[Rfam]
RNA: Pseudomonas sRNA P36
RNA sequence: UAACCGGUUAACCGGUUAACCGGUUAACCGGUAACCGGUUAACCGGUAACCGGUAACCGG
Number, nucleotide and partner (000 for none) at each position: 001u000002a000003a000004c000005c030006g029007g028008u027009u026010a025011a024012c023013c022014g021015g020016u000017u000018a000019a000020c015021c014022g013023g012024u011025u010026a009027a008028c007029c006030g005031g000032u000033a000034a000035c060036c059037g058038g057039u056040u055041a054042a000043c053044c052045g051046g000047u000048a000049a000050c000051c045052g044053g043054u041055a040056a039057c038058c037059g036060g035